RNA sequence: GAAGCCCACCAGACCACCGCUGGUGCAAUCUGGGAAACCAGGCACUGGAGGAACGUCCGGACUGCAUAGGGCAGCGUAGCAGUUAACGACUGUCCACCGACAAGCGUUUGGCGUAAGCCAAGCGCCCUAAGGUGAGGAUUAGAGCAACAGAGACGAGUUUUGGACUCGGACGCAACGCAAGUUGCGGCACGAGCCCAAAGGUGAAACGGGCAAUCUCUACGCGCAGCAAUACCAAGUAGGCCAACGUUGACGGGGCCCCCGGAGUUGGCGGGUAGGUAGCAUCGAGCCGUUUGGGUGACCAGCGGCCCAGAGUAAUGGUGGUCACGUGGGGGGAAACCCCCAUGCACAGAAUCCGGCUUAUCGGUGGGCUUCACAC
Number, nucleotide and partner (000 for none) at each position: 001g372002a371003a370004g369005c368006c367007c366008a365009c364010c363011a361012g323013a322014c321015c320016a319017c318018c317019g000020c048021u047022g046023g045024u044025g043026c042027a000028a000029u000030c000031u000032g000033g000034g000035a000036a000037a000038c000039c000040a000041g000042g026043c025044a024045c023046u022047g021048g020049a000050g000051g000052a000053a359054c000055g357056u000057c356058c355059g354060g353061a352062c226063u225064g224065c223066a000067u000068a000069g258070g257071g256072c255073a000074g222075c221076g220077u219078a218079g093080c092081a091082g090083u089084u000085a000086a000087c000088g000089a083090c082091u081092g080093u079094c136095c134096a133097c132098c131099g000100a000101c000102a000103a000104g000105c000106g000107u000108u000109u000110g000111g000112c000113g000114u000115a000116a000117g000118c000119c000120a000121a000122g000123c000124g000125c000126c000127c000128u000129a000130a000131g098132g097133u096134g095135a000136g094137g217138a216139u000140u000141a000142g215143a214144g211145c210146a000147a000148c000149a000150g000151a000152g000153a000154c000155g000156a000157g000158u000159u200160u199161u000162g196163g195164a000165c193166u192167c191168g190169g000170a000171c000172g000173c000174a000175a000176c000177g000178c000179a000180a000181g000182u000183u000184g000185c000186g000187g000188c000189a000190c168191g167192a166193g165194c000195c163196c162197a000198a000199a160200g159201g000202u000203g000204a000205a000206a000207c000208g000209g000210g145211c144212a000213a000214u143215c142216u138217c137218u078219a077220c076221g075222c074223g065224c064225a063226g062227c000228a000229a000230u278231a277232c276233c275234a000235a000236g000237u000238a000239g000240g269241c268242c267243a266244a265245c264246g000247u000248u000249g000250a000251c261252g260253g259254g000255g072256c071257c070258c069259c253260c252261g251262g000263a000264g245265u244266u243267g242268g241269c240270g000271g000272g000273u000274a000275g233276g232277u231278a230279g000280c000281a000282u000283c000284g000285a000286g306287c305288c304289g303290u000291u302292u301293g300294g299295g000296u000297g000298a000299c294300c293301a292302g291303c289304g288305g287306c286307c000308c000309a000310g000311a000312g000313u000314a000315a000316u000317g018318g017319u016320g015321g014322u013323c012324a000325c000326g000327u000328g000329g000330g000331g000332g000333g000334a000335a000336a000337c000338c000339c000340c000341c000342a000343u000344g000345c000346a000347c000348a000349g000350a000351a000352u061353c060354c059355g058356g057357c055358u000359u053360a000361u011362c000363g010364g009365u008366g007367g006368g005369c004370u003371u002372c001373a000374c000375a000376c000

The family of this 376-nucleotide sequence from Rhodoferax sp. TH121 is "Bacterial RNase P class A". The family's RNA type in Rfam is ribozyme. Rfam describes the family as follows. Ribonuclease P (RNase P) is a ubiquitous endoribonuclease, found in archaea, bacteria and eukarya as well as chloroplasts and mitochondria. Its best characterised activity is the generation of mature 5'-ends of tRNAs by cleaving the 5'-leader elements of precursor-tRNAs. Cellular RNase Ps are ribonucleoproteins. RNA from bacterial RNase Ps retains its catalytic activity in the absence of the protein subunit, i.e. it is a ribozyme. Isolated eukaryotic and archaeal RNase P RNA has not been shown to retain its catalytic function, but is still essential for the catalytic activity of the holoenzyme. Although the archaeal and eukaryotic holoenzyme s have a much greater protein content than the bacterial ones, the RNA cores from all the three lineages are homologous -- helices corresponding to P1, P2, P3, P4, and P10/11 are common to all cellular RNase P RNAs. Yet, there is considerable sequence variation, particularly among the eukaryotic RNAs. Identified in Yersinia as Ysr151/RnpB. The family's consensus secondary structure is taken from published work.